Shown here is a 168-nucleotide RNA sequence from Candidatus Thiodiazotropha endolucinida, a member of the family "Group II catalytic intron D1-D4-3". The pairing is the family consensus, mapped onto this sequence.
RNA sequence: AAACCCGCAAGGGGAUGUCUGAAGGAAACCUAAGCGCAAAACAGCGAGCCGACGGACAGGAAUGUCAUAUAAGGCCUACUUCCCUGGGGCAAGGUGGCACAAGACAUCAAAGCCCUGUGGUUCGGGGGAUAAGGUAAAUGGCGCGGUUGUGCUGUGAAAGUUCAUGUU
Numbered sequence: 001a002a003a004c005c006c007g008c009a010a011g012g013g014g015a016u017g018u019c020u021g022a023a024g025g026a027a028a029c030c031u032a033a034g035c036g037c038a039a040a041a042c043a044g045c046g047a048g049c050c051g052a053c054g055g056a057c058a059g060g061a062a063u064g065u066c067a068u069a070u071a072a073g074g075c076c077u078a079c080u081u082c083c084c085u086g087g088g089g090c091a092a093g094g095u096g097g098c099a100c101a102a103g104a105c106a107u108c109a110a111a112g113c114c115c116u117g118u119g120g121u122u123c124g125g126g127g128g129a130u131a132a133g134g135u136a137a138a139u140g141g142c143g144c145g146g147u148u149g150u151g152c153u154g155u156g157a158a159a160g161u162u163c164a165u166g167u168u
Base pairs, nucleotide, nucleotide: 001016004013005012006011028168030166036161037160041155042154043153044152045151046150047148048147049146050145051144063143064142065141066140067139068138074135075134076133081129082128083127084126085125087115088114089113090112093108094107095106096105
About the family: Group II introns are found in rRNA, tRNA and mRNA of organelles in fungi, plants and protists, and also in mRNA in bacteria.